[Rfam]
RNA: mir-29 microRNA precursor family
RNA sequence: UGAGUACUGGUUUCAAGUUGGUGGUAAGAUGCUCCUUCAUUAAAAACUCUAGCACCAUUUGAAAUCAGUGCUUC
Numbered sequence: 001u002g003a004g005u006a007c008u009g010g011u012u013u014c015a016a017g018u019u020g021g022u023g024g025u026a027a028g029a030u031g032c033u034c035c036u037u038c039a040u041u042a043a044a045a046a047c048u049c050u051a052g053c054a055c056c057a058u059u060u061g062a063a064a065u066c067a068g069u070g071c072u073u074c
Base pairs, nucleotide, nucleotide: 002073003072004071007068008067009066010065011064012063013062014061015060019057020056021055022054023053027050028049029048